[Rfam]
Rfam assigns this 262-nucleotide RNA from Cricetulus griseus to the family "Small Cajal body specific RNA 6".

RNA sequence: GGUCAAUGAUGAAUAGUAAAAGGUCUGACUUCCAGGGUCACCUACCAGCAUCCUACAUCCCCAGCUGCGUGCUCUUUCCAUCUUACUGUAGUAGUGCUAUCAUGGCAAACACAAUAGCUGACAUGCAGUGAUGUCUCCAUUCUGUGUUCUCUGACAAGCCCAGAGAAGACAUGAGUUGGCAUCCAACAGCUUAGUCUCUAAGGGAUUUGAUUGUUGGGAGUGCUGGUAUCCCUUGGCUAUGAUCUGACUUUAAGCUGAGACC
Numbered sequence: 001g002g003u004c005a006a007u008g009a010u011g012a013a014u015a016g017u018a019a020a021a022g023g024u025c026u027g028a029c030u031u032c033c034a035g036g037g038u039c040a041c042c043u044a045c046c047a048g049c050a051u052c053c054u055a056c057a058u059c060c061c062c063a064g065c066u067g068c069g070u071g072c073u074c075u076u077u078c079c080a081u082c083u084u085a086c087u088g089u090a091g092u093a094g095u096g097c098u099a100u101c102a103u104g105g106c107a108a109a110c111a112c113a114a115u116a117g118c119u120g121a122c123a124u125g126c127a128g129u130g131a132u133g134u135c136u137c138c139a140u141u142c143u144g145u146g147u148u149c150u151c152u153g154a155c156a157a158g159c160c161c162a163g164a165g166a167a168g169a170c171a172u173g174a175g176u177u178g179g180c181a182u183c184c185a186a187c188a189g190c191u192u193a194g195u196c197u198c199u200a201a202g203g204g205a206u207u208u209g210a211u212u213g214u215u216g217g218g219a220g221u222g223c224u225g226g227u228a229u230c231c232c233u234u235g236g237c238u239a240u241g242a243u244c245u246g247a248c249u250u251u252a253a254g255c256u257g258a259g260a261c262c
Stems, first nucleotide, its partner, number of pairs: 001262004035245005042220002045217005058205004062120006078105004084099002086096001128184001130183006143171003147167007
Its family is annotated with RNA processing and nucleolus in the Gene Ontology. Rfam's curators write: U88 is small Cajal body specific RNA (scaRNA). scaRNAs are a novel class of small nuclear RNAs which localise to the Cajal bodies. U88 is found associated with both fibrillarin and Gar1p and co-localises with coilin in Cajal bodies.